[Rfam]
RNA sequence: UUGAAGAAUUUGAAGACCUCAACUUGCAAAUUUGAUUGAUUUGAAGACUUCAAUUUGCAGAGUUGAAGAAUUUGAAGACUUCAACU
Number, nucleotide and partner (000 for none) at each position: 001u084002u083003g082004a081005a080006g079007a000008a000009u076010u075011u074012g073013a072014a071015g000016a000017c068018c000019u066020c065021a064022a000023c000024u000025u059026g058027c057028a056029a000030a000031u000032u053033u052034g051035a050036u000037u000038g000039a000040u000041u000042u000043g000044a000045a000046g000047a000048c000049u000050u035051c034052a033053a032054u000055u000056u028057g027058c026059a025060g000061a000062g000063u000064u021065g020066a019067a000068g017069a000070a000071u014072u013073u012074g011075a010076a009077g000078a000079c006080u005081u004082c003083a002084a001085c000086u000
Notes:
This 86-nucleotide RNA sequence from Solanum tuberosum belongs to the Rfam family "MIR8024 microRNA precursor family". Rfam links the family to the GO terms miRNA-mediated post-transcriptional gene silencing and RISC complex. Taxonomically the source falls in Solanum (Eukaryota, Embryophyta, Magnoliopsida, Pentapetalae).